A member of the RNA family "Small nucleolar RNA SNORD22" from Crypturellus undulatus, 125 nucleotides long. The base pairs follow the family's consensus structure, which was predicted with PFOLD. The literature on the family includes a 1996 paper in Nature by Tycowski et al., "A mammalian gene with introns instead of exons generating stable RNA products". It scores 91 bits against the family's covariance model. Taxonomically the source falls in Crypturellus (Eukaryota, Vertebrata, Teleostomi, Tinamidae). Rfam links the family to the GO terms nucleolus and RNA processing.
RNA sequence: CCCCCGUGAGGAAAACCCCACGCGUCUUACUGCCCGCUCGGCACCAGAACCUGCAAAGGUUGAACCCACUGGUGCCGGCGGCCGGAGAGGAGGACGGCUCGUUCAGCGGGAACGGUCUGAGGGGC
Numbered sequence: 001c002c003c004c005c006g007u008g009a010g011g012a013a014a015a016c017c018c019c020a021c022g023c024g025u026c027u028u029a030c031u032g033c034c035c036g037c038u039c040g041g042c043a044c045c046a047g048a049a050c051c052u053g054c055a056a057a058g059g060u061u062g063a064a065c066c067c068a069c070u071g072g073u074g075c076c077g078g079c080g081g082c083c084g085g086a087g088a089g090g091a092g093g094a095c096g097g098c099u100c101g102u103u104c105a106g107c108g109g110g111a112a113c114g115g116u117c118u119g120a121g122g123g124g125c
Stems, first nucleotide, its partner, number of pairs: 001124004
Rfam classes the family as a C/D-box small nucleolar RNA.